[Rfam]
RNA: Mammalian CPEB3 ribozyme
RNA sequence: AGAGUUUGCGGCCAUAGCAGAAGCACUCAUGAUAUGGCCAUGUCACGUUCCAAUGAAUCUGUGAAUCCUACU
Number, nucleotide and partner (000 for none) at each position: 001a000002g000003a000004g000005u000006u000007u000008g000009c000010g039011g038012c037013c036014a000015u000016a072017g071018c000019a069020g068021a000022a066023g035024c000025a033026c000027u000028c000029a000030u000031g000032a000033u025034a000035u023036g013037g012038c011039c010040a000041u000042g000043u000044c061045a060046c000047g058048u057049u056050c055051c000052a000053a000054u000055g050056a049057a048058u047059c000060u045061g044062u000063g000064a000065a000066u022067c000068c020069u019070a000071c017072u016